[Rfam]
RNA sequence: ACUGUGAAGUGUUAUAUCAAAUGAGAGUAGCAAGUUGCAAAAUCAGACACGUUGAAGCAGUAA
Dot-bracket structure: (((((...(((((........(((.....(((...)))....))))))))......)))))..
This 63-nucleotide RNA sequence belongs to the Rfam family "RAGATH-18 RNA". The base pairs follow the family's consensus structure, which is taken from published work.